A member of the RNA family "Glycine riboswitch aptamer" from Streptomyces coryli, 92 nucleotides long. This family represents the bacterial glycine riboswitch. Glycine riboswitches usually consist of two metabolite-binding aptamers domains with similar structures in tandem. The aptamers cooperatively bind glycine to regulate the expression of downstream genes. In Bacillus subtilis, this riboswitch is found upstream of the gcvT operon which controls glycine degradation. The match comes from Rfam's covariance-model search (74 bits). NCBI's taxonomy places the organism under Bacteria, Bacillati, Actinomycetes, Kitasatosporales, Streptomyces.
[Rfam]
RNA sequence: CGACUCCGCGCGGGAGAGUCCUGGAAUCACGCCAGGCGCCGAAGGAGCAAGACCCCCUCGAAUCUCUCAGGCACAGAUACCGCACGGAAUAG
Numbered sequence: 001c002g003a004c005u006c007c008g009c010g011c012g013g014g015a016g017a018g019u020c021c022u023g024g025a026a027u028c029a030c031g032c033c034a035g036g037c038g039c040c041g042a043a044g045g046a047g048c049a050a051g052a053c054c055c056c057c058u059c060g061a062a063u064c065u066c067u068c069a070g071g072c073a074c075a076g077a078u079a080c081c082g083c084a085c086g087g088a089a090u091a092g
Stems, first nucleotide, its partner, number of pairs: 006087003010083004020036004038072003041068002045066003051059002